A member of the RNA family "Plastid-ccsA-ndhD-2 3UTR RNA" from Tinospora cordifolia, 50 nucleotides long. Pairs were carried over by alignment from the consensus structure, which was predicted with LocARNA.

[Rfam]
RNA sequence: UUUUUGAGAACUAUUUGAAUCGAGUCAAAGUAGUGAUUCAAAUAGUUCUC
Numbered sequence: 001u002u003u004u005u006g007a008g009a010a011c012u013a014u015u016u017g018a019a020u021c022g023a024g025u026c027a028a029a030g031u032a033g034u035g036a037u038u039c040a041a042a043u044a045g046u047u048c049u050c
Stems, first nucleotide, its partner, number of pairs: 006050017
On this family, see Zandueta-Criado and Bock, Nucleic Acids Res 2004: "Surprising features of plastid ndhD transcripts: addition of non-encoded nucleotides and polysome association of mRNAs with an unedited start codon". From the family's description: Plastid ccsA-ndhD-2 is a non-coding RNA (ncRNA) recognised in plastids. It was found in the three prime untranslated region (3UTR) of ccsA and ndhD genes, its 3UTR location suggests a role in transcript maturation. The sequence is in the family's curated seed alignment. Taxonomically the source falls in Tinospora (Eukaryota, Streptophytina, Tracheophyta, Burasaieae).